[Rfam]
RNA sequence: UUUCGGUUAUCUAGUUUUAGAAUUCCUACGCUUUACCGUUGCCAAGCUUUUUGGGCAAAGCGUUUGGAUUCUAAAACGGAAAUACC
Numbered sequence: 001u002u003u004c005g006g007u008u009a010u011c012u013a014g015u016u017u018u019a020g021a022a023u024u025c026c027u028a029c030g031c032u033u034u035a036c037c038g039u040u041g042c043c044a045a046g047c048u049u050u051u052u053g054g055g056c057a058a059a060g061c062g063u064u065u066g067g068a069u070u071c072u073a074a075a076a077c078g079g080a081a082a083u084a085c086c
Stems, first nucleotide, its partner, number of pairs: 010080003014077008023068003028063007036055002
This 86-nucleotide RNA from Pieris brassicae belongs to the Rfam family "mir-927 microRNA precursor family". The organism belongs to Pieris, within Eukaryota. It scores 84 bits against the family's covariance model. A reference for the family is Berezikov et al. (2010), "Evolutionary flux of canonical microRNAs and mirtrons in Drosophila", Nat Genet.